[Rfam]
RNA sequence: AUAAUGAUACUUCCGCUAUGGCAGCGGGUCGCUUUGAUGGGACUGGUUAGAUUCCAAUGA
Numbered sequence: 001a002u003a004a005u006g007a008u009a010c011u012u013c014c015g016c017u018a019u020g021g022c023a024g025c026g027g028g029u030c031g032c033u034u035u036g037a038u039g040g041g042a043c044u045g046g047u048u049a050g051a052u053u054c055c056a057a058u059g060a
Base pairs, nucleotide, nucleotide: 012057013027014026015025016024028043029042030041032039044056045055046054
RNA: pemK RNA